A member of the RNA family "Metazoan signal recognition particle RNA" from Rousettus aegyptiacus, 304 nucleotides long. From the family's description: The signal recognition particle (SRP) is a universally conserved ribonucleoprotein.
[Rfam]
RNA sequence: GCAGGGCGUGGUGGCAUGCACCUGUAGUCCCAGCUACUCGGGAGGCUGAGGCAGGAGGAUUGCUUGAGCCCAGGAGUUCUGGGCUGUAGUGCGCUAUGCCGAUCAGGUGUCCACACUAAGUUUGUCAUCAAUAUGGCGACCUCCUGGGAGCGGGGGACCACAAGGUUGCCUAAGGAGGGGAAAACCAGCCCAGGUCAGAAAUGGAGCAGGUCAAAACUCCCAUGCUGAUCAGUAGUAAGAGGAUCACGCCUAUAAAUAGUCACUGUACUCCUGGCCUGGGCAAAAUAGCAAGAUCCAAUCUCUA
Numbered sequence: 001g002c003a004g005g006g007c008g009u010g011g012u013g014g015c016a017u018g019c020a021c022c023u024g025u026a027g028u029c030c031c032a033g034c035u036a037c038u039c040g041g042g043a044g045g046c047u048g049a050g051g052c053a054g055g056a057g058g059a060u061u062g063c064u065u066g067a068g069c070c071c072a073g074g075a076g077u078u079c080u081g082g083g084c085u086g087u088a089g090u091g092c093g094c095u096a097u098g099c100c101g102a103u104c105a106g107g108u109g110u111c112c113a114c115a116c117u118a119a120g121u122u123u124g125u126c127a128u129c130a131a132u133a134u135g136g137c138g139a140c141c142u143c144c145u146g147g148g149a150g151c152g153g154g155g156g157a158c159c160a161c162a163a164g165g166u167u168g169c170c171u172a173a174g175g176a177g178g179g180g181a182a183a184a185c186c187a188g189c190c191c192a193g194g195u196c197a198g199a200a201a202u203g204g205a206g207c208a209g210g211u212c213a214a215a216a217c218u219c220c221c222a223u224g225c226u227g228a229u230c231a232g233u234a235g236u237a238a239g240a241g242g243a244u245c246a247c248g249c250c251u252a253u254a255a256a257u258a259g260u261c262a263c264u265g266u267a268c269u270c271c272u273g274g275c276c277u278g279g280g281c282a283a284a285a286u287a288g289c290a291a292g293a294u295c296c297a298a299u300c301u302c303u304a
Stems, first nucleotide, its partner, number of pairs: 001046002004023003008019003028043003048302004054296003060291005068281007079273001081271003085267007093260005105251006111242002115236004120230001122228003126224003129168004134163001136161001138159001141156006169175002177220004188211003195204003